Shown here is a 170-nucleotide RNA from Gordonia polyisoprenivorans, a member of the family "c-di-AMP riboswitch aptamer (ydaO/yuaA leader)". The base pairs follow the family's consensus structure. NCBI's taxonomy places the organism under Bacteria, Actinomycetota, Actinomycetes, Gordoniaceae, Gordonia polyisoprenivorans. It scores 83 bits against the family's covariance model. Rfam 15.1 lists 7,607 matches to the family in 2,262 species.
[Rfam]
RNA sequence: GGGAGAUCACCGCUCAAUCGUCCGACGGACGAACCGGGGAACCACACGUUUUCGGAGCAAUCCGGAUUGGGGUGAGUCGCGCCCUGGACACAGUUGUGUCCGGAUCGCGUAGGGCCAUUCUCUCGGCCCGAACCCGACAGCUAACUCGGUAGGCGGUCAAGGGAGAACCA
Numbered sequence: 001g002g003g004a005g006a007u008c009a010c011c012g013c014u015c016a017a018u019c020g021u022c023c024g025a026c027g028g029a030c031g032a033a034c035c036g037g038g039g040a041a042c043c044a045c046a047c048g049u050u051u052u053c054g055g056a057g058c059a060a061u062c063c064g065g066a067u068u069g070g071g072g073u074g075a076g077u078c079g080c081g082c083c084c085u086g087g088a089c090a091c092a093g094u095u096g097u098g099u100c101c102g103g104a105u106c107g108c109g110u111a112g113g114g115c116c117a118u119u120c121u122c123u124c125g126g127c128c129c130g131a132a133c134c135c136g137a138c139a140g141c142u143a144a145c146u147c148g149g150u151a152g153g154c155g156g157u158c159a160a161g162g163g164a165g166a167a168c169c170a
Base pairs, nucleotide, nucleotide: 011155012154013153014152018032019031020030033150034149035148036147037146038145043069044068070135071134072133078109079108080107081106112129113128114127115126